[Rfam]
Nucleotides: 256
Base pairs, nucleotide, nucleotide: 007235008234009233017085018084019083101116102115103114104113105112106111132166135163192227193226194225195224196223198221199220200219202215203214204213205212238254239253240252241251242250
Number, partner (000 for none) and nucleotide at each position: 001000u002000g003000c004000c005000c006000c007235g008234g009233u010000a011000c012000u013000g014000c015000c016000a017085g018084c019083c020000c021000c022000u023000c024000c025000u026000g027000a028000a029000a030000g031000g032000a033000a034000c035000a036000g037000u038000g039000a040000g041000g042000g043000a044000a045000a046000a047000g048000a049000a050000a051000c052000c053000u054000g055000c056000c057000a058000a059000a060000c061000c062000c063000c064000a065000c066000c067000c068000c069000u070000c071000c072000c073000g074000c075000c076000c077000g078000c079000g080000c081000c082000c083019g084018g085017c086000g087000a088000g089000c090000g091000g092000g093000a094000g095000u096000c097000g098000u099000g100000g101116u102115c103114a104113c105112u106111c107000c108000g109000g110000u111106g112105a113104g114103u115102g116101a117000u118000g119000u120000u121000c122000g123000c124000c125000a126000a127000c128000c129000g130000g131000a132166c133000u134000u135163g136000a137000u138000c139000u140000g141000g142000g143000g144000a145000g146000g147000g148000u149000u150000g151000u152000a153000u154000g155000c156000c157000u158000u159000a160000c161000g162000c163135u164000c165000u166132g167000c168000c169000u170000c171000a172000c173000a174000c175000a176000g177000c178000u179000u180000c181000a182000g183000a184000a185000a186000u187000u188000c189000a190000a191000c192227g193226g194225c195224c196223c197000c198221c199220g200219c201000c202215g203214g204213g205212a206000c207000u208000g209000g210000c211000a212205u213204c214203c215202c216000a217000a218000u219200g220199c221198g222000a223196g224195g225194g226193c227192c228000u229000c230000a231000c232000c233009a234008c235007c236000a237000a238254g239253g240252a241251a242250g243000a244000a245000g246000c247000c248000u249000g250242c251241u252240u253239c254238c255000c256000g